[Rfam]
RNA sequence: GUUUCUUAGUGACGGCUACAGAUUAAACCUCUGGUCUCUGGAGCCAGAUGCAUUGAAAC
Number, nucleotide and partner (000 for none) at each position: 001g059002u058003u057004u056005c055006u000007u000008a000009g000010u000011g000012a000013c000014g045015g044016c043017u042018a000019c040020a039021g038022a037023u000024u000025a000026a000027a000028c034029c033030u000031c000032u000033g029034g028035u000036c000037u022038c021039u020040g019041g000042a017043g016044c015045c014046a000047g000048a000049u000050g000051c000052a000053u000054u000055g005056a004057a003058a002059c001
Notes: A member of the RNA family "Selenocysteine insertion sequence 1" from Maylandia zebra, 59 nucleotides long. The literature on the family includes a 1996 paper in RNA by Walczak et al., "A novel RNA structural motif in the selenocysteine insertion element of eukaryotic selenoprotein mRNAs". The incorporation of selenocysteine into a protein sequence is directed by an in-frame UGA codon (usually a stop codon) within the coding region of the mRNA. Selenoprotein mRNAs contain a conserved secondary structure in the 3' UTR that is required for the distinction of UGA stop from UGA selenocysteine. Its family is annotated with selenocysteine incorporation in the Gene Ontology. A search with the family's covariance model found it, with a score of 36 bits.